RNA sequence: ACGCAUAACCAGGGGUGCUCUAACCAGAGCUGAGAUGCGCAAUACCGCGCGAACCCUUCACAGCUGAUCCGGAUAAUGCCGGCGGAGCGAGGGACUAUGUUUAUAGG
Numbered sequence: 001a002c003g004c005a006u007a008a009c010c011a012g013g014g015g016u017g018c019u020c021u022a023a024c025c026a027g028a029g030c031u032g033a034g035a036u037g038c039g040c041a042a043u044a045c046c047g048c049g050c051g052a053a054c055c056c057u058u059c060a061c062a063g064c065u066g067a068u069c070c071g072g073a074u075a076a077u078g079c080c081g082g083c084g085g086a087g088c089g090a091g092g093g094a095c096u097a098u099g100u101u102u103a104u105a106g107g
Base pairs, nucleotide, nucleotide: 009092010091011057012056013055014054016051017030018029019028020027021026037050038049039048040047063088064087065086069082070081071080072079
Shown here is a 107-nucleotide sequence from Sulfitobacter undariae, a member of the family "TPP riboswitch aptamer (THI element)". The organism belongs to Sulfitobacter, within Bacteria. A search with the family's covariance model found it, with a score of 66 bits.